The record is a 35-nucleotide RNA sequence, which matches "DUF805b RNA" in Rfam. Pairs were carried over by alignment from the consensus structure, which is taken from published work. It is one of the family's seed sequences.
[Rfam]
RNA sequence: AAGGAGUAAUCCGAAAAUCCUUAAAAGAGUAGGAG
Dot-bracket structure: .((((....[[[.....))))..........]]].